The family of this 115-nucleotide RNA from Proteus myxofaciens is "tp2". A reference for the family is Hershberg et al. (2003), "A survey of small RNA-encoding genes in Escherichia coli", Nucleic Acids Res. Rfam classes the family as a small RNA.
[Rfam]
RNA sequence: UGUAUUCCUUAUCUGUUAUCUAUUUUAAUGGUUAUGGGAGCCUAUCUUCUCGUUAUACUUUCAAGAUACGACGGGAAGAGAAGCCCUUGCUGUUAUUACCGCUACCCCCUUAAAA
Numbered sequence: 001u002g003u004a005u006u007c008c009u010u011a012u013c014u015g016u017u018a019u020c021u022a023u024u025u026u027a028a029u030g031g032u033u034a035u036g037g038g039a040g041c042c043u044a045u046c047u048u049c050u051c052g053u054u055a056u057a058c059u060u061u062c063a064a065g066a067u068a069c070g071a072c073g074g075g076a077a078g079a080g081a082a083g084c085c086c087u088u089g090c091u092g093u094u095a096u097u098a099c100c101g102c103u104a105c106c107c108c109c110u111u112a113a114a115a
Stems, first nucleotide, its partner, number of pairs: 002099003022091001024089001037087002040084002043081001045079002049075005056068002059065001